[Rfam]
RNA sequence: CGAAUUCGACAUGCGCACCCUCCUCCCAGCGCCUGUCGACAAGACCGACGAGCCUCCUCUCCCAAAUCGUCGGUCAACAUAACGACGCCCGCCGGACCUCCUCCCCCGGUGGGCGUUGUUG
Numbered sequence: 001c002g003a004a005u006u007c008g009a010c011a012u013g014c015g016c017a018c019c020c021u022c023c024u025c026c027c028a029g030c031g032c033c034u035g036u037c038g039a040c041a042a043g044a045c046c047g048a049c050g051a052g053c054c055u056c057c058u059c060u061c062c063c064a065a066a067u068c069g070u071c072g073g074u075c076a077a078c079a080u081a082a083c084g085a086c087g088c089c090c091g092c093c094g095g096a097c098c099u100c101c102u103c104c105c106c107c108g109g110u111g112g113g114c115g116u117u118g119u120u121g
Base pairs, nucleotide, nucleotide: 007038008037009036010035011034013032014031015030016029043075044074045073046072047071048070049069050068051067085116086115087114088113089112090111091110092109093108094107095106
RNA: Alphaproteobacterial ar14